RNA sequence: GGUAUUCUUCGGGGCAGGGUGAAAUUCCCGACCGGCGGUAAAAGUCCGCGAACCAUAAUAUUAUUAUGGUUGAACUGGUGUAAUUCCAGUACCGACAGUAAAGUCUGGAUGGUAGAAGAAGGUU
Numbered sequence: 001g002g003u004a005u006u007c008u009u010c011g012g013g014g015c016a017g018g019g020u021g022a023a024a025u026u027c028c029c030g031a032c033c034g035g036c037g038g039u040a041a042a043a044g045u046c047c048g049c050g051a052a053c054c055a056u057a058a059u060a061u062u063a064u065u066a067u068g069g070u071u072g073a074a075c076u077g078g079u080g081u082a083a084u085u086c087c088a089g090u091a092c093c094g095a096c097a098g099u100a101a102a103g104u105c106u107g108g109a110u111g112g113u114a115g116a117a118g119a120a121g122g123u124u
Stems, first nucleotide, its partner, number of pairs: 003122001005120006017029003031104002033094002035049004044092002052070003074090005096107003